[Rfam]
RNA: Small Cajal body specific RNA 11
Organism: Hymenochirus boettgeri
RNA sequence: UUGUCCACUCCGCUUGGCUCUGCCUACCCUCUGUCUAGAAUUACAGUUGGUCUGUGGAUGGACGCACAGUGAUUCUGCCUGUUUAGGAGGGCCGCACACAGACUGGGUGCAUUCCCUUAAAGGCAUGGCAGGACAUU
Numbered sequence: 001u002u003g004u005c006c007a008c009u010c011c012g013c014u015u016g017g018c019u020c021u022g023c024c025u026a027c028c029c030u031c032u033g034u035c036u037a038g039a040a041u042u043a044c045a046g047u048u049g050g051u052c053u054g055u056g057g058a059u060g061g062a063c064g065c066a067c068a069g070u071g072a073u074u075c076u077g078c079c080u081g082u083u084u085a086g087g088a089g090g091g092c093c094g095c096a097c098a099c100a101g102a103c104u105g106g107g108u109g110c111a112u113u114c115c116c117u118u119a120a121a122g123g124c125a126u127g128g129c130a131g132g133a134c135a136u137u
Stems, first nucleotide, its partner, number of pairs: 002064006010057002026051003031046004074132006081124004087118005094110004099105001
Dot-bracket structure: .((((((..((..............(((..((((........))))..)))....)).)))))).........((((((.((((..(((((..((((.(.....).))))...)))))..))))..)))))).....